[Rfam]
RNA: MIR408 microRNA precursor family
Organism: Panicum hallii
RNA sequence: AGGUGGUUUGGAUUGGAGACAGGGAUGAGGCAGAGCAUGGGAUGGGGCCAUCAACAAAAAAAAACCCCGUUUCUUCCACUGCGAAAACAUGUCUGUUCGCUUGCCUGCGAGAUAGGGAAGGGAGUUGUGAGAGGUUCUUCAUCAGGCACAGAAAAUGGUUGAGAGCUCCGCUGGUGUUGUUGCUCCCUCCCCUGCACUGCCUCUUCCCUGGCUCCCCAUCAUAGCCGCCCA
Numbered sequence: 001a002g003g004u005g006g007u008u009u010g011g012a013u014u015g016g017a018g019a020c021a022g023g024g025a026u027g028a029g030g031c032a033g034a035g036c037a038u039g040g041g042a043u044g045g046g047g048c049c050a051u052c053a054a055c056a057a058a059a060a061a062a063a064a065c066c067c068c069g070u071u072u073c074u075u076c077c078a079c080u081g082c083g084a085a086a087a088c089a090u091g092u093c094u095g096u097u098c099g100c101u102u103g104c105c106u107g108c109g110a111g112a113u114a115g116g117g118a119a120g121g122g123a124g125u126u127g128u129g130a131g132a133g134g135u136u137c138u139u140c141a142u143c144a145g146g147c148a149c150a151g152a153a154a155a156u157g158g159u160u161g162a163g164a165g166c167u168c169c170g171c172u173g174g175u176g177u178u179g180u181u182g183c184u185c186c187c188u189c190c191c192c193u194g195c196a197c198u199g200c201c202u203c204u205u206c207c208c209u210g211g212c213u214c215c216c217c218a219u220c221a222u223a224g225c226c227g228c229c230c231a
Stems, first nucleotide, its partner, number of pairs: 016214003020210006028202006035195003039191001041190001045186002